[Rfam]
Nucleotides: 248
Stems, first nucleotide, its partner, number of pairs: 007227001010224001017072003078093004083088001184219005190213003194207004230246005
Number, partner (000 for none) and nucleotide at each position: 001000c002000g003000g004000g005000c006000c007227g008000g009000g010224g011000c012000u013000g014000c015000g016000g017072g018071c019070g020000g021000u022000a023000a024000a025000a026000g027000a028000c029000c030000a031000a032000a033000g034000a035000a036000c037000c038000u039000g040000g041000g042000g043000a044000a045000a046000a047000a048000a049000c050000c051000c052000u053000u054000c055000c056000a057000a058000c059000c060000a061000a062000c063000c064000a065000a066000a067000c068000c069000u070019c071018g072017c073000g074000c075000a076000u077000g078093u079092c080091a081090c082000a083088c084000g085000a086000g087000c088083g089000g090081g091080u092079g093078a094000a095000a096000c097000a098000g099000g100000u101000g102000g103000g104000a105000g106000c107000g108000g109000g110000u111000g112000g113000c114000g115000c116000g117000c118000g119000g120000g121000u122000a123000a124000c125000u126000c127000g128000g129000g130000c131000g132000u133000g134000c135000a136000g137000u138000c139000u140000c141000g142000c143000c144000g145000u146000a147000g148000g149000c150000a151000a152000g153000u154000c155000c156000u157000a158000c159000a160000a161000c162000u163000c164000c165000a166000c167000a168000u169000c170000c171000c172000c173000a174000c175000a176000c177000a178000u179000a180000c181000u182000u183000c184219g185218g186217c187216c188215c189000c190213c191212g192211c193000c194207g195206g196205g197204a198000c199000g200000g201000c202000a203000a204197u205196c206195c207194c208000a209000g210000u211192g212191c213190g214000a215188g216187g217186g218185c219184c220000u221000g222000a223000c224010c225000a226000a227007c228000g229000a230246g231245g232244a233243a234242g235000a236000g237000a238000c239000a240000c241000g242234c243233u244232u245231c246230c247000c248000c
Source information:
Streptomyces sRNA 4677: a 248-nucleotide RNA sequence from Streptomyces sp. HGB0020. The family has 12 seed sequences and 563 matches in Rfam 15.1. Rfam describes the family as follows. Located in the intergenic region between anti-sigma factor SCO4677 gene and a putative regulatory protein gene SCO4676. scr4677 expression requires the SCO4677 activity and scr4677 sRNA itself seem to affect the levels of the SCO4676-associated transcripts.